[Rfam]
RNA sequence: AGACCAUAGCAGCCGAAUCCUGGGCUGAAAAAUCGUCCGGGAGCGGGGGACCCAAUUUGAACGAGCUGGCCGUAAAAAGCCGCUUGUUCCGGGGCGCAGGUCAGACCCAGCCAUAAACGGUCCGACCAGGAGACUUUCAACUCCUAGCCCGUCAGCUAACCUCGCAGGCGGAACCGGACAUGUAU
Numbered sequence: 001a002g003a004c005c006a007u008a009g010c011a012g013c014c015g016a017a018u019c020c021u022g023g024g025c026u027g028a029a030a031a032a033u034c035g036u037c038c039g040g041g042a043g044c045g046g047g048g049g050a051c052c053c054a055a056u057u058u059g060a061a062c063g064a065g066c067u068g069g070c071c072g073u074a075a076a077a078a079g080c081c082g083c084u085u086g087u088u089c090c091g092g093g094g095c096g097c098a099g100g101u102c103a104g105a106c107c108c109a110g111c112c113a114u115a116a117a118c119g120g121u122c123c124g125a126c127c128a129g130g131a132g133a134c135u136u137u138c139a140a141c142u143c144c145u146a147g148c149c150c151g152u153c154a155g156c157u158a159a160c161c162u163c164g165c166a167g168g169c170g171g172a173a174c175c176g177g178a179c180a181u182g183u184a185u
Base pairs, nucleotide, nucleotide: 012169013168014167018042019041020040021039022038023037024036025035043165044164045163046162047161048160053091092150093149094148100126101125102124129144130143131142132141
Dot-bracket structure: ...........(((...((((((((.........))))))))((((((....(.....................................)(((.....(((.....................)))..((((........))))...))).........)))))).)))................
Overview: Shown here is a 185-nucleotide RNA sequence from a Pirellulaceae bacterium, a member of the family "c-di-AMP riboswitch aptamer (ydaO/yuaA leader)". This family represents a conserved RNA structure found upstream of the ydaO and yuaA genes in Bacillus subtilis and related genes in other bacteria. Rfam links the family to the GO terms cyclic-di-AMP binding and regulation of gene expression.